[Rfam]
RNA sequence: UGAGAGUUAGUUUAAGAAGAACCCCUGAUUUCGGCUCAGAAGGCUUUGGUUAAAGUCCAAAACUCUUUA
Numbered sequence: 001u002g003a004g005a006g007u008u009a010g011u012u013u014a015a016g017a018a019g020a021a022c023c024c025c026u027g028a029u030u031u032c033g034g035c036u037c038a039g040a041a042g043g044c045u046u047u048g049g050u051u052a053a054a055g056u057c058c059a060a061a062a063c064u065c066u067u068u069a
Stems, first nucleotide, its partner, number of pairs: 002067006010022004025039004045061005
The record is a 69-nucleotide RNA sequence, which matches "tRNA" in Rfam. It is one of the family's seed sequences.